[Rfam]
RNA sequence: GGCCGGUGCGCGUCAACCGGACCCGGUGGUAUCGAGGAACGGAGAUGGUUUUUCCGGUUUCCCGCUCCGGCCAACGAAUUGGCAGCCGAGCCUCUGUCCCACCCGUGCC
Dot-bracket structure: .....((((..(((.....)))..(((((....((((..(((((..(...............).)))))(((........))).......))))....))))).)))).
The family of this 109-nucleotide RNA sequence from Devosia oryzisoli is "Rhizobiales sRNA Atu_At1". A search with the family's covariance model found it, with a score of 92 bits. The organism belongs to Devosia, within Bacteria. A reference for the family is Wilms et al. (2012), "Deep sequencing uncovers numerous small RNAs on all four replicons of the plant pathogen Agrobacterium tumefaciens", RNA Biol. Rfam classes the family as a small RNA.